[Rfam]
RNA: mir-27 microRNA precursor family
RNA sequence: UGCAGUGGCAGGACUUAGCCCACAUGUGAACACUGCAUGCCACGCCAUGUUCACAGUGGUUAAGUUCUACCACUCUG
Numbered sequence: 001u002g003c004a005g006u007g008g009c010a011g012g013a014c015u016u017a018g019c020c021c022a023c024a025u026g027u028g029a030a031c032a033c034u035g036c037a038u039g040c041c042a043c044g045c046c047a048u049g050u051u052c053a054c055a056g057u058g059g060u061u062a063a064g065u066u067c068u069a070c071c072a073c074u075c076u077g
Stems, first nucleotide, its partner, number of pairs: 011067010026054007